The family of this 67-nucleotide sequence from Cnephaeus nilssonii is "mir-9256 microRNA precursor family".

RNA sequence: AUAUAUACUGAGUGGCCAGGUUAUUAUGCAUUCAGAGAGCAUAGUAAUCUGGCCACUCAGUGUAUAA
Numbered sequence: 001a002u003a004u005a006u007a008c009u010g011a012g013u014g015g016c017c018a019g020g021u022u023a024u025u026a027u028g029c030a031u032u033c034a035g036a037g038a039g040c041a042u043a044g045u046a047a048u049c050u051g052g053c054c055a056c057u058c059a060g061u062g063u064a065u066a067a
Base pairs, nucleotide, nucleotide: 004064005063006062007061008060009059010058011057012056013055014054015053016052017051019049020048021047022046023045024044025043026042027041028040
Gene Ontology terms of the family: miRNA-mediated post-transcriptional gene silencing and RISC complex. A search with the family's covariance model found it, with a score of 80 bits.